[Rfam]
RNA: S4-Clostridia ribosomal protein leader
RNA sequence: GAAAGGCUGCAUUUCCAUGCAGCUGGGCAUACUGGUCUAUGCCCCAGUUAGA
Numbered sequence: 001g002a003a004a005g006g007c008u009g010c011a012u013u014u015c016c017a018u019g020c021a022g023c024u025g026g027g028c029a030u031a032c033u034g035g036u037c038u039a040u041g042c043c044c045c046a047g048u049u050a051g052a
Base pairs, nucleotide, nucleotide: 005024006023007022008021009020010019011018012017025044026043027042028041029040030039031038